[Rfam]
The family of this 99-nucleotide RNA from Salix brachista is "Small nucleolar RNA Z107/R87". Its family is annotated with RNA processing and nucleolus in the Gene Ontology. It scores 85 bits against the family's covariance model. Pairs were carried over by alignment from the consensus structure, which was predicted with RNAfold.
RNA sequence: GAUCGCAAUGAUGACACAUUAAAAUUCAAGCUCAACAGACCGGAUUACAGGCAUUCUUUCUGAAAGUUUGUAUGGCGAUUACCGCUGAACUGAGCGAUC
Numbered sequence: 001g002a003u004c005g006c007a008a009u010g011a012u013g014a015c016a017c018a019u020u021a022a023a024a025u026u027c028a029a030g031c032u033c034a035a036c037a038g039a040c041c042g043g044a045u046u047a048c049a050g051g052c053a054u055u056c057u058u059u060c061u062g063a064a065a066g067u068u069u070g071u072a073u074g075g076c077g078a079u080u081a082c083c084g085c086u087g088a089a090c091u092g093a094g095c096g097a098u099c
Stems, first nucleotide, its partner, number of pairs: 001099006

On this family, see Barneche et al., J Mol Biol 2001: "Identification of 66 box C/D snoRNAs in Arabidopsis thaliana: extensive gene duplications generated multiple isoforms predicting new ribosomal RNA 2'-O-methylation sites". The organism belongs to Salix, within Eukaryota.